[Rfam]
RNA sequence: CUCGCUACUUACUGUAAGUCGCUCUGGAUAAGAGUGUCUGCUAAAUGACUAAAA
Numbered sequence: 001c002u003c004g005c006u007a008c009u010u011a012c013u014g015u016a017a018g019u020c021g022c023u024c025u026g027g028a029u030a031a032g033a034g035u036g037u038c039u040g041c042u043a044a045a046u047g048a049c050u051a052a053a054a
Stems, first nucleotide, its partner, number of pairs: 013043001014041003020036006
Description
A member of the RNA family "UnaL2 LINE 3' element" from Hucho hucho, 54 nucleotides long. A reference for the family is Baba et al. (2004), "Solution structure of an RNA stem-loop derived from the 3' conserved region of eel LINE UnaL2", RNA. Rfam links the family to the GO term transposition, RNA-mediated. The eel long interspersed element (LINE) UnaL2 and its partner short interspersed element (SINE) share a conserved 3' tail containing a stem-loop that is critical for their retrotransposition.